Record summary:
A member of the RNA family "U2 spliceosomal RNA" from Phytophthora ramorum, 190 nucleotides long. NCBI's taxonomy places the organism under Eukaryota, Oomycota, Peronosporomycetes, Peronosporaceae, Phytophthora. The family has 208 seed sequences and 71,512 matches in Rfam 15.1.
[Rfam]
RNA sequence: AUACCUUCUCGGCCUUUUGGCUAAGAUCAAGUGUAGUAUCUGUUCUAAUCAGUGUGAAAACUGGUUUCCGACGUUUUUCGUUGGUCUUUUUCACAUUCAUUUUUGGAACUUCCGAGAAUGCUAGCUUGCUAGCUUUUCUUGGAACGGUCUCCGGGGGCUUUCACUAUCUCCCCCGCGAGGCCAACCACCA
Numbered sequence: 001a002u003a004c005c006u007u008c009u010c011g012g013c014c015u016u017u018u019g020g021c022u023a024a025g026a027u028c029a030a031g032u033g034u035a036g037u038a039u040c041u042g043u044u045c046u047a048a049u050c051a052g053u054g055u056g057a058a059a060a061c062u063g064g065u066u067u068c069c070g071a072c073g074u075u076u077u078u079c080g081u082u083g084g085u086c087u088u089u090u091u092c093a094c095a096u097u098c099a100u101u102u103u104u105g106g107a108a109c110u111u112c113c114g115a116g117a118a119u120g121c122u123a124g125c126u127u128g129c130u131a132g133c134u135u136u137u138c139u140u141g142g143a144a145c146g147g148u149c150u151c152c153g154g155g156g157g158c159u160u161u162c163a164c165u166a167u168c169u170c171c172c173c174c175g176c177g178a179g180g181c182c183a184a185c186c187a188c189c190a
Base pairs, nucleotide, nucleotide: 007026008025009024011022012021013020014019047066048065049064050063051062052061068084069083070082071081072080073079112142113141114140115139116138117137118136121132122131123130124129146182147181148180149179150178152175153174154173155172156171157170